[Rfam]
RNA sequence: GGGGACGACCGGUUUUGACGGCGUGAGUGGUUGCGAGUAAAAGCAUGUCAGGAGUUGGUAGAACCUCCUGUUAAAAAUUCUUCCGAACAAUAACUGGCAAUACUUCGUAUGCCAUGGCUGCUUAAUUCCGGAGUGAAUUAAACUUUUAGCCACAUUCCGCCCCGGCCAACCUCUGCCGCGGGGAUUCCGGAGUGUCGACCUGCAGAGGCGAUUAAGUGCGGGGAACUUGUUCUUAAUUAGUAUUUAGGUUUCUAAGGAAAAGCUCUGGUAUGUCGGACACCUACCUUUUCUCGAAAAUUAAGACCGAAUAAACAUGUAGAAGGCUCGACAAAUGCCAUGUUCGGACCAGAGUUCGACUCUCUGCGUCUCCACAA
Numbered sequence: 001g002g003g004g005a006c007g008a009c010c011g012g013u014u015u016u017g018a019c020g021g022c023g024u025g026a027g028u029g030g031u032u033g034c035g036a037g038u039a040a041a042a043g044c045a046u047g048u049c050a051g052g053a054g055u056u057g058g059u060a061g062a063a064c065c066u067c068c069u070g071u072u073a074a075a076a077a078u079u080c081u082u083c084c085g086a087a088c089a090a091u092a093a094c095u096g097g098c099a100a101u102a103c104u105u106c107g108u109a110u111g112c113c114a115u116g117g118c119u120g121c122u123u124a125a126u127u128c129c130g131g132a133g134u135g136a137a138u139u140a141a142a143c144u145u146u147u148a149g150c151c152a153c154a155u156u157c158c159g160c161c162c163c164g165g166c167c168a169a170c171c172u173c174u175g176c177c178g179c180g181g182g183g184a185u186u187c188c189g190g191a192g193u194g195u196c197g198a199c200c201u202g203c204a205g206a207g208g209c210g211a212u213u214a215a216g217u218g219c220g221g222g223g224a225a226c227u228u229g230u231u232c233u234u235a236a237u238u239a240g241u242a243u244u245u246a247g248g249u250u251u252c253u254a255a256g257g258a259a260a261a262g263c264u265c266u267g268g269u270a271u272g273u274c275g276g277a278c279a280c281c282u283a284c285c286u287u288u289u290c291u292c293g294a295a296a297a298u299u300a301a302g303a304c305c306g307a308a309u310a311a312a313c314a315u316g317u318a319g320a321a322g323g324c325u326c327g328a329c330a331a332a333u334g335c336c337a338u339g340u341u342c343g344g345a346c347c348a349g350a351g352u353u354c355g356a357c358u359c360u361c362u363g364c365g366u367c368u369c370c371a372c373a374a
Base pairs, nucleotide, nucleotide: 001370002369003368004367005366006365007364019343020342021341022339023338024337025336031330034327035326036325037324038323044316045315046314047313048312049070050069051068052067053066057084058083060081061080062079063078115136117134118133119132121130153194154193155192156191157190158189160183161182162181163178164177165176166175170208171207172206173205174204211237212236213235214234215233216232218230220253221252222251223250224249256291257290258289259288260287261286262285267281268280269279273307274306275305276304278302347363348362349361350360351359